[Rfam]
RNA sequence: UGUCUCCUCCACCUCCUUAAAACUGGUGGAUUCAGGCCCAGAGCUGUGAAGCUUUGGGCCUUUUCUU
Numbered sequence: 001u002g003u004c005u006c007c008u009c010c011a012c013c014u015c016c017u018u019a020a021a022a023c024u025g026g027u028g029g030a031u032u033c034a035g036g037c038c039c040a041g042a043g044c045u046g047u048g049a050a051g052c053u054u055u056g057g058g059c060c061u062u063u064u065c066u067u
Stems, first nucleotide, its partner, number of pairs: 008030006035060008
RNA: Betaproteobacteria toxic small RNA